A member of the RNA family "6C RNA" from Oryzihumus leptocrescens, 75 nucleotides long. A reference for the family is Weinberg et al. (2007), "Identification of 22 candidate structured RNAs in bacteria using the CMfinder comparative genomics pipeline", Nucleic Acids Res. Rfam links the family to the GO term sporulation. The family's RNA type in Rfam is cis-regulatory element.

RNA sequence: AACGCACCAGCUCCUCCCCCCCGGAGCUUGGCGCGUUGACGGCCCCCGUUGUCCCCCCGACGGGGGCCGUCCCCU
Numbered sequence: 001a002a003c004g005c006a007c008c009a010g011c012u013c014c015u016c017c018c019c020c021c022c023g024g025a026g027c028u029u030g031g032c033g034c035g036u037u038g039a040c041g042g043c044c045c046c047c048g049u050u051g052u053c054c055c056c057c058c059g060a061c062g063g064g065g066g067c068c069g070u071c072c073c074c075u
Stems, first nucleotide, its partner, number of pairs: 002036004007031003010027004038071013